Annotation: The record is a 97-nucleotide RNA from Aurantimonas coralicida, which matches "TPP riboswitch aptamer (THI element)" in Rfam. From the family's description: Vitamin B(1) in its active form thiamin pyrophosphate (TPP) is an essential coenzyme that is synthesised by coupling of pyrimidine and thiazole moieties in bacteria.
RNA sequence: CGUGCUCACACGGGGUGCCUUCGGGCUGAGAGGCGCAUGCCGACCCGUCGAACCUGAUCCGGCUCAUACCGGCGGAGGGAUGCGGGCGUCGGCGGGU
Numbered sequence: 001c002g003u004g005c006u007c008a009c010a011c012g013g014g015g016u017g018c019c020u021u022c023g024g025g026c027u028g029a030g031a032g033g034c035g036c037a038u039g040c041c042g043a044c045c046c047g048u049c050g051a052a053c054c055u056g057a058u059c060c061g062g063c064u065c066a067u068a069c070c071g072g073c074g075g076a077g078g079g080a081u082g083c084g085g086g087c088g089u090c091g092g093c094g095g096g097u
Stems, first nucleotide, its partner, number of pairs: 006085002009082002011047004017026003033040002053078003059072004